Shown here is a 109-nucleotide sequence from Anaerospora hongkongensis, a member of the family "SAM riboswitch aptamer (S box leader)". The literature on the family includes a 2004 paper in Nucleic Acids Res by Rodionov et al., "Comparative genomics of the methionine metabolism in Gram-positive bacteria: a variety of regulatory systems". The base pairs follow the family's consensus structure, which is taken from published work.

RNA sequence: UGCUCAUCGAGAGUUGGUGGAGGGACAGGCCCGAUGAAACCGCGGCAACCAUUCGCGCUUAUGUGAAAACGGUGCCAAUUCCGGCAGGAUUAAUCCUGCAAGAUGGGAG
Numbered sequence: 001u002g003c004u005c006a007u008c009g010a011g012a013g014u015u016g017g018u019g020g021a022g023g024g025a026c027a028g029g030c031c032c033g034a035u036g037a038a039a040c041c042g043c044g045g046c047a048a049c050c051a052u053u054c055g056c057g058c059u060u061a062u063g064u065g066a067a068a069a070c071g072g073u074g075c076c077a078a079u080u081c082c083g084g085c086a087g088g089a090u091u092a093a094u095c096c097u098g099c100a101a102g103a104u105g106g107g108a109g
Base pairs, nucleotide, nucleotide: 001109003107004106005105006104007103008102013043015042016041017040018039022032023031024030026084028082029081044076045075046074047073049072050071052067053066054065080101085098086097087096088095089094